[Rfam]
RNA sequence: UAGAGUUUCUUGCUUCUCUCAAGAGCAAGUGGUGCGGAUGGGGUUUAUACUCCCGCCAGGUUUCUUGUUUCCUGUAAAAGAAUAAGUGGCGUGCAUGGCA
Numbered sequence: 001u002a003g004a005g006u007u008u009c010u011u012g013c014u015u016c017u018c019u020c021a022a023g024a025g026c027a028a029g030u031g032g033u034g035c036g037g038a039u040g041g042g043g044u045u046u047a048u049a050c051u052c053c054c055g056c057c058a059g060g061u062u063u064c065u066u067g068u069u070u071c072c073u074g075u076a077a078a079a080g081a082a083u084a085a086g087u088g089g090c091g092u093g094c095a096u097g098g099c100a
Stems, first nucleotide, its partner, number of pairs: 009029007039055005057074004064086006
RNA: wcaG RNA